[Rfam]
RNA sequence: AGUGUAAUGUGGAGGCUGUAUUAUCUGAAGUAUCUAAUCUGUUACAUGAUUCAUGGUCUUCAAAGUUCUCUGAUUGUU
Number, nucleotide and partner (000 for none) at each position: 001a078002g077003u076004g075005u000006a000007a000008u000009g000010u000011g000012g000013a000014g000015g000016c000017u000018g000019u000020a000021u000022u000023a000024u000025c000026u000027g000028a000029a000030g000031u000032a000033u000034c000035u000036a000037a000038u000039c000040u000041g000042u000043u000044a000045c000046a000047u000048g000049a000050u000051u000052c000053a000054u000055g000056g000057u000058c000059u000060u000061c000062a000063a000064a000065g000066u000067u000068c000069u000070c000071u000072g000073a000074u000075u004076g003077u002078u001
About this RNA
A member of the RNA family "Small nucleolar RNA R160" from Panicum miliaceum, 78 nucleotides long. The family has 9 seed sequences and 799 matches in Rfam 15.1. The match comes from Rfam's covariance-model search (61 bits). Rfam classes the family as a C/D-box small nucleolar RNA. Taxonomically the source falls in Panicum sect. Panicum (Eukaryota, Liliopsida, commelinids, Poaceae). On this family, see Chen et al., Nucleic Acids Res 2003: "The high diversity of snoRNAs in plants: identification and comparative study of 120 snoRNA genes from Oryza sativa". Rfam describes the family as follows. snoR160 is a C/D box small nucleolar RNA, which acts as a methylation guide for 25S ribosomal RNA in plants. snoR160 has been alternatively named snoZ270 in rice.